mir-10 microRNA precursor family: a 73-nucleotide sequence from Ophiophagus hannah. On this family, see Lee and Ambros, Science 2001: "An extensive class of small RNAs in Caenorhabditis elegans". Rfam 15.1 lists 3,853 matches to the family in 853 species. Rfam links the family to the GO terms RISC complex and miRNA-mediated post-transcriptional gene silencing. The family's consensus secondary structure was predicted with PFOLD. A search with the family's covariance model found it, with a score of 62 bits.
[Rfam]
RNA sequence: UGCCAUAAACCCGUAGAUCCGAACUUGCGGUACCACUGCUUCACACAAGCUCGAGUCUGUGGGUAUGUGUCGA
Numbered sequence: 001u002g003c004c005a006u007a008a009a010c011c012c013g014u015a016g017a018u019c020c021g022a023a024c025u026u027g028c029g030g031u032a033c034c035a036c037u038g039c040u041u042c043a044c045a046c047a048a049g050c051u052c053g054a055g056u057c058u059g060u061g062g063g064u065a066u067g068u069g070u071c072g073a
Base pairs, nucleotide, nucleotide: 002071004069005068006067007066010063011062012061015058016057017056018055020053021052022051024049025048026047027046029044
Dot-bracket structure: .(.((((..(((..((((.(((.((((.(..............).)))).))).))))..)))..)))).)..